[Rfam]
RNA sequence: GAGACACCCCUAUGGAUCAGGGCUUGCCUCAGUGGGGCUUUGGUACUCACUGAGUCUGCCCUUGAGUGUGUUGCU
Numbered sequence: 001g002a003g004a005c006a007c008c009c010c011u012a013u014g015g016a017u018c019a020g021g022g023c024u025u026g027c028c029u030c031a032g033u034g035g036g037g038c039u040u041u042g043g044u045a046c047u048c049a050c051u052g053a054g055u056c057u058g059c060c061c062u063u064g065a066g067u068g069u070g071u072u073g074c075u
Stems, first nucleotide, its partner, number of pairs: 001074001003072005009066001011064002014061002018058002021056003029053008037044002
Dot-bracket structure: (.(((((.(.((.((..((.(((.....((((((((((....)).))))))))))))).)).)).).))))).).
The record is a 75-nucleotide RNA sequence from Myotis brandtii, which matches "mir-9229 microRNA precursor family" in Rfam.
It scores 71 bits against the family's covariance model.
The base pairs follow the family's consensus structure, which was predicted with RNAalifold.
The source organism's lineage runs through Eukaryota, Sarcopterygii, Amniota, Mammalia and Myotis.